[Rfam]
RNA sequence: GGUGACAAUAGAAUAGGCACUCAAGGGCGGUUGGCAGAUCCUCGCAGCUUACCGGCUCGCGUAAAGCGGGCUUGGAAGGAGGUGAUGCCAUGGAAGUAAAGGAUGCGGUAACCAUGAUGUUCAUGUUCGGCAUGUUCAUCCUCGCCUUGCUUUCCUACUUGAAAAAGAAGUAGACCUCCCUUGAGCCUUGGUAGCCAGGAGGUCCAGCAUUCUUGGUUUGACCUUGUGCCGAUCGCCCUUGGGGCAAUCUAUUGUACCCCGGACCGUGGAUGCUGCGAACAUCUUCG
Numbered sequence: 001g002g003u004g005a006c007a008a009u010a011g012a013a014u015a016g017g018c019a020c021u022c023a024a025g026g027g028c029g030g031u032u033g034g035c036a037g038a039u040c041c042u043c044g045c046a047g048c049u050u051a052c053c054g055g056c057u058c059g060c061g062u063a064a065a066g067c068g069g070g071c072u073u074g075g076a077a078g079g080a081g082g083u084g085a086u087g088c089c090a091u092g093g094a095a096g097u098a099a100a101g102g103a104u105g106c107g108g109u110a111a112c113c114a115u116g117a118u119g120u121u122c123a124u125g126u127u128c129g130g131c132a133u134g135u136u137c138a139u140c141c142u143c144g145c146c147u148u149g150c151u152u153u154c155c156u157a158c159u160u161g162a163a164a165a166a167g168a169a170g171u172a173g174a175c176c177u178c179c180c181u182u183g184a185g186c187c188u189u190g191g192u193a194g195c196c197a198g199g200a201g202g203u204c205c206a207g208c209a210u211u212c213u214u215g216g217u218u219u220g221a222c223c224u225u226g227u228g229c230c231g232a233u234c235g236c237c238c239u240u241g242g243g244g245c246a247a248u249c250u251a252u253u254g255u256a257c258c259c260c261g262g263a264c265c266g267u268g269g270a271u272g273c274u275g276c277g278a279a280c281a282u283c284u285u286c287g
Stems, first nucleotide, its partner, number of pairs: 001259002005255001007253003011249001013233002016230003020185008029175001031173002038083001040082004092154007105120003129146003195216003235245003265287002268284005274278001

Shown here is a 287-nucleotide sequence from Paenibacillus naphthalenovorans, a member of the family "BsrG".
Rfam describes the family as follows. bsrE, bsrG and bsrH pair through intermolecular interactions with antisense sRNAs.
The literature on the family includes a 2008 paper in Gene by Saito et al., "Novel small RNA-encoding genes in the intergenic regions of Bacillus subtilis".
Rfam classes the family as a small RNA.
Pairs were carried over by alignment from the consensus structure, which was predicted with WAR.